[Rfam]
RNA sequence: CCACCGAUCGCGCCACGUACGGACCCCACAAGGCAGGGACGGGGGAACCACUUCCGGGCUCCAGGAAUGGAGUCCUCGGGGUGAAGCCUGGGCUGGUUCUCGGACCGGUCGAGGCCGGGUGCACCACUCCGCCCGAACCCGACAGCUCACCUCGUAGGCGCUAUGGAGAGGUAGA
Dot-bracket structure: .(.((...(.(........................).)((((((....(............................)(((.....(((......................)))..((((..........))))...))).........)))))).)).)...............
Source information:
A member of the RNA family "c-di-AMP riboswitch aptamer (ydaO/yuaA leader)" from Xylanimonas ulmi, 175 nucleotides long. Rfam's curators write: This family represents a conserved RNA structure found upstream of the ydaO and yuaA genes in Bacillus subtilis and related genes in other bacteria. A search with the family's covariance model found it, with a score of 63 bits. The pairing is the family consensus, mapped onto this sequence. Rfam links the family to the GO terms cyclic-di-AMP binding and regulation of gene expression. Taxonomically the source falls in Xylanimonas (Bacteria, Bacillati, Actinomycetes, Promicromonosporaceae).